[Rfam]
RNA: Bacterial RNase P class A
RNA sequence: UAAGCAGAUCACCUUAUCGCGGCCUUAGGGUCGAGGAAAGUCCGGACACCAUAGCACAGUAUAGCGGGUAACGCCCGUCCGUCGUAAGGCGAGGACAAGUGCAACAGAAAGUAUGUACAGGUUAUGCUGUAGUGAAAUCAGGUAAACUCUAUACGGUGCAACGCCAUGUAAACCAGCUUUUUAGGGUUGUGCGCCCAAUGUUGGAGGGUAGGCGGUUUGAUCUCAAUAGUAAUAUUGAGACUAGAUAAAUGAUAAGGAUCCACAUUGUUGGAAACAGAAUCCGGCUUAUGAUCUGCUUUUUUU
Numbered sequence: 001u002a003a004g005c006a007g008a009u010c011a012c013c014u015u016a017u018c019g020c021g022g023c024c025u026u027a028g029g030g031u032c033g034a035g036g037a038a039a040g041u042c043c044g045g046a047c048a049c050c051a052u053a054g055c056a057c058a059g060u061a062u063a064g065c066g067g068g069u070a071a072c073g074c075c076c077g078u079c080c081g082u083c084g085u086a087a088g089g090c091g092a093g094g095a096c097a098a099g100u101g102c103a104a105c106a107g108a109a110a111g112u113a114u115g116u117a118c119a120g121g122u123u124a125u126g127c128u129g130u131a132g133u134g135a136a137a138u139c140a141g142g143u144a145a146a147c148u149c150u151a152u153a154c155g156g157u158g159c160a161a162c163g164c165c166a167u168g169u170a171a172a173c174c175a176g177c178u179u180u181u182u183a184g185g186g187u188u189g190u191g192c193g194c195c196c197a198a199u200g201u202u203g204g205a206g207g208g209u210a211g212g213c214g215g216u217u218u219g220a221u222c223u224c225a226a227u228a229g230u231a232a233u234a235u236u237g238a239g240a241c242u243a244g245a246u247a248a249a250u251g252a253u254a255a256g257g258a259u260c261c262a263c264a265u266u267g268u269u270g271g272a273a274a275c276a277g278a279a280u281c282c283g284g285c286u287u288a289u290g291a292u293c294u295g296c297u298u299u300u301u302u303u
Stems, first nucleotide, its partner, number of pairs: 002298010012257007020033005038287003042284005047158004054192004059154005064078005079093001080091004094149002099147002101143002116131005162214004173204005184196004221240008